This 129-nucleotide sequence from Dufourea novaeangliae belongs to the Rfam family "Small Cajal body specific RNA 8". The base pairs follow the family's consensus structure, which is taken from published work. Gene Ontology terms of the family: nucleolus, Cajal body and RNA processing. The literature on the family includes a 2002 paper in EMBO J by Darzacq et al., "Cajal body-specific small nuclear RNAs: a novel class of 2'-O-methylation and pseudouridylation guide RNAs". Lineage of the source: Eukaryota > Bilateria > Arthropoda > Hymenoptera > Dufourea.

RNA sequence: UGGAAGACUGAUACAUGAGAUUCAGUUAACUAGGCUUCUCAUCACUAAUUCUUCCUAUAAAACAUUUUGCCUUCUGAUGACUGUGACUUGUGAAGAUUUAAUUUACAGACAGAUACGGGGCAUACAAGA
Numbered sequence: 001u002g003g004a005a006g007a008c009u010g011a012u013a014c015a016u017g018a019g020a021u022u023c024a025g026u027u028a029a030c031u032a033g034g035c036u037u038c039u040c041a042u043c044a045c046u047a048a049u050u051c052u053u054c055c056u057a058u059a060a061a062a063c064a065u066u067u068u069g070c071c072u073u074c075u076g077a078u079g080a081c082u083g084u085g086a087c088u089u090g091u092g093a094a095g096a097u098u099u100a101a102u103u104u105a106c107a108g109a110c111a112g113a114u115a116c117g118g119g120g121c122a123u124a125c126a127a128g129a
Stems, first nucleotide, its partner, number of pairs: 002055006015042004019035001021033002068122006081108003086103001088101002